[Rfam]
Nucleotides: 074
Stems, first nucleotide, its partner, number of pairs: 001073007010026004028044005050066005
Number, partner (000 for none) and nucleotide at each position: 001073g002072g003071g004070c005069u006068u007067a008000u009000a010026g011025u012024u013023u014000a015000a016000u017000u018000g019000g020000u021000u022000c023013a024012a025011a026010c027000g028044c029043a030042c031041c032040g033000c034000u035000c036000a037000u038000a039000a040032c041031g042030g043029u044028g045000a046000u047000a048000u049000u050066g051065u052064a053063g054062g055000u056000u057000c058000g059000a060000g061000u062054c063053c064052u065051a066050c067007u068006a069005a070004g071003c072002c073001u074000a
The family of this 74-nucleotide RNA is "tRNA". By type it is a transfer RNA. Its family is annotated with triplet codon-amino acid adaptor activity in the Gene Ontology.